[Rfam]
RNA: U8 small nucleolar RNA
RNA sequence: UCGUCAGUGAGGUACAUCCUUACCUGUUACUCCAUCCAUGGAGUUGCAGAACAUGAUGAAUGGAGGUUCAUGAGAUAUGAUUAGUAUCUCCCUCUUGUUGGGAAGAGCAACUCCCAUCAAGACCCAUUCUGAU
Numbered sequence: 001u002c003g004u005c006a007g008u009g010a011g012g013u014a015c016a017u018c019c020u021u022a023c024c025u026g027u028u029a030c031u032c033c034a035u036c037c038a039u040g041g042a043g044u045u046g047c048a049g050a051a052c053a054u055g056a057u058g059a060a061u062g063g064a065g066g067u068u069c070a071u072g073a074g075a076u077a078u079g080a081u082u083a084g085u086a087u088c089u090c091c092c093u094c095u096u097g098u099u100g101g102g103a104a105g106a107g108c109a110a111c112u113c114c115c116a117u118c119a120a121g122a123c124c125c126a127u128u129c130u131g132a133u
Stems, first nucleotide, its partner, number of pairs: 024049003028046001029044005072090002075087003078083001095121001096119002099116004